[Rfam]
RNA sequence: AAUUACAUUCGGAGGUAAGGAGAUAUGAACAACUAAGUUUCGUUAAAUAAGAUACUUUAUUUAGUGGACUGCUUGUUCUAUCUCUUUUUGUGUGCCCUC
Numbered sequence: 001a002a003u004u005a006c007a008u009u010c011g012g013a014g015g016u017a018a019g020g021a022g023a024u025a026u027g028a029a030c031a032a033c034u035a036a037g038u039u040u041c042g043u044u045a046a047a048u049a050a051g052a053u054a055c056u057u058u059a060u061u062u063a064g065u066g067g068a069c070u071g072c073u074u075g076u077u078c079u080a081u082c083u084c085u086u087u088u089u090g091u092g093u094g095c096c097c098u099c
Base pairs, nucleotide, nucleotide: 011098012097014095017088018087019085020084021083022082023081024080025079027078028077029076030075031074032073037069039068040067041066042065043064045062046061047060048059049058050057051055

Rfam assigns this 99-nucleotide RNA from Streptococcus parasanguinis to the family "Streptococcus sRNA SpF43". Rfam classes the family as a small RNA. Pairs were carried over by alignment from the consensus structure, which was predicted with mfold. The sequence is in the family's curated seed alignment.